[Rfam]
RNA sequence: CUCUUAUCCAGAGCGGUGGAGGGACCGGCCCUGUGAAACCGCGGCAACCGGUGGGGAAACCCACGCCUUGGUGCCAAUUCCGGCCCGCGCGAGCGGGAAAGAUAAGGG
Numbered sequence: 001c002u003c004u005u006a007u008c009c010a011g012a013g014c015g016g017u018g019g020a021g022g023g024a025c026c027g028g029c030c031c032u033g034u035g036a037a038a039c040c041g042c043g044g045c046a047a048c049c050g051g052u053g054g055g056g057a058a059a060c061c062c063a064c065g066c067c068u069u070g071g072u073g074c075c076a077a078u079u080c081c082g083g084c085c086c087g088c089g090c091g092a093g094c095g096g097g098a099a100a101g102a103u104a105a106g107g108g
Stems, first nucleotide, its partner, number of pairs: 001108008013042005021031003025083004043075004048071002050067004079100001084097005
RNA: SAM riboswitch aptamer (S box leader)
Organism: Oceanithermus profundus